[Rfam]
RNA: mir-30 microRNA precursor family
RNA sequence: GGAGCGAUUGUAAACAUCCUCGACUGGAAGCUGUGAAGAAGCAGACAGGGCUUUCAGUCGGAUGUUUGCAGCUGCCAA
Dot-bracket structure: ...(((.((((((((((((...((((((((((................)))))))))).)))))))))))).)))...
Numbered sequence: 001g002g003a004g005c006g007a008u009u010g011u012a013a014a015c016a017u018c019c020u021c022g023a024c025u026g027g028a029a030g031c032u033g034u035g036a037a038g039a040a041g042c043a044g045a046c047a048g049g050g051c052u053u054u055c056a057g058u059c060g061g062a063u064g065u066u067u068g069c070a071g072c073u074g075c076c077a078a
Stems, first nucleotide, its partner, number of pairs: 004075003008071012023058010